[Rfam]
RNA sequence: GGAAGCAGAACUCUGUACAAACCAGACCGAUGAAACAUUGUGCAGAGU
Numbered sequence: 001g002g003a004a005g006c007a008g009a010a011c012u013c014u015g016u017a018c019a020a021a022c023c024a025g026a027c028c029g030a031u032g033a034a035a036c037a038u039u040g041u042g043c044a045g046a047g048u
Base pairs, nucleotide, nucleotide: 011047012046013045014044015043017041018040019039
This 48-nucleotide RNA sequence from Clostridium sp. chh4-2 belongs to the Rfam family "uup RNA".